[Rfam]
This 237-nucleotide RNA sequence from Thiocystis violascens belongs to the Rfam family "Group II catalytic intron D1-D4-6". About the family: Group II introns are found in rRNA, tRNA and mRNA of organelles in fungi, plants and protists, and also in mRNA in bacteria. For this family Rfam cites "The ins and outs of group II introns" (Bonen and Vogel, Trends Genet, 2001). The match comes from Rfam's covariance-model search (85 bits). The family has 174 seed sequences and 1,617 matches in Rfam 15.1. The base pairs follow the family's consensus structure.
RNA sequence: AAAGUCCCGUCCGGGGAGUUGUCCGUACCCCUCGGUAGCAUGAGGAAGCGGCGUCUUGGUAACAAGGGGUCGUGAGUUUCCUCCCAGCAAAAGAGCAGGCCGUAACGCAAGUGAACCUAGAGGUAGCCUCGUAAUAUUAGGUUGGAGACGCCGACCCUGUGGACAGAAGGGGAAGGCCGUUGGGUGGCCAUUGGAAGAACGGAAGUGAUGGUCAUCGUCUCUCGGGGUAGCAGGGGC
Number, nucleotide and partner (000 for none) at each position: 001a000002a000003a000004g000005u000006c000007c000008c000009g000010u000011c000012c034013g033014g032015g031016g030017a000018g000019u025020u000021g000022u204023c000024c000025g019026u000027a000028c000029c000030c016031c015032u014033c013034g012035g000036u090037a000038g088039c087040a000041u000042g083043a082044g081045g080046a078047a077048g073049c072050g071051g070052c069053g000054u067055c066056u065057u064058g063059g000060u000061a000062a000063c058064a057065a056066g055067g054068g000069g052070u051071c050072g049073u048074g000075a000076g000077u047078u046079u000080c045081c044082u043083c042084c000085c000086a000087g039088c038089a000090a036091a000092a000093g000094a000095g000096c000097a000098g000099g000100c000101c000102g000103u000104a000105a000106c000107g000108c000109a000110a000111g000112u000113g000114a000115a000116c000117c000118u000119a000120g000121a000122g000123g231124u229125a000126g228127c227128c226129u225130c224131g223132u000133a000134a000135u000136a000137u000138u000139a000140g000141g000142u000143u000144g222145g221146a220147g219148a218149c217150g177151c176152c175153g000154a000155c171156c170157c169158u168159g000160u000161g000162g000163a000164c000165a000166g000167a000168a158169g157170g156171g155172g000173a000174a000175g152176g151177c150178c000179g000180u000181u000182g000183g216184g215185u214186g213187g212188c211189c210190a209191u208192u207193g000194g000195a000196a000197g000198a000199a000200c000201g000202g000203a000204a022205g000206u000207g192208a191209u190210g189211g188212u187213c186214a185215u184216c183217g149218u148219c147220u146221c145222u144223c131224g130225g129226g128227g127228u126229a124230g000231c123232a000233g000234g000235g000236g000237c000